[Rfam]
RNA sequence: CGGCCCAUCACAGCGCCAGCGCCCGCCGCCAGCGGCGGGACGACGAGGGGAAGGGAGUAUCGAAGGAUUCGGCGGAUGCCCUUCCGUGCCCACGGGCGCGUACACAGCCGGCAAAUAUGCGGGCAACCGCAAAACAAGGGGGCUGUGACCGUGAAGA
Numbered sequence: 001c002g003g004c005c006c007a008u009c010a011c012a013g014c015g016c017c018a019g020c021g022c023c024c025g026c027c028g029c030c031a032g033c034g035g036c037g038g039g040a041c042g043a044c045g046a047g048g049g050g051a052a053g054g055g056a057g058u059a060u061c062g063a064a065g066g067a068u069u070c071g072g073c074g075g076a077u078g079c080c081c082u083u084c085c086g087u088g089c090c091c092a093c094g095g096g097c098g099c100g101u102a103c104a105c106a107g108c109c110g111g112c113a114a115a116u117a118u119g120c121g122g123g124c125a126a127c128c129g130c131a132a133a134a135c136a137a138g139g140g141g142g143c144u145g146u147g148a149c150c151g152u153g154a155a156g157a
Base pairs, nucleotide, nucleotide: 022039023038024037025036026035027034051083052082053081054080055079060072061071062070063069084095085094086093103147104146105145106144107143108142109141118131119130120129121128122127
RNA: glmS glucosamine-6-phosphate activated ribozyme aptamer
Organism: Dysosmobacter welbionis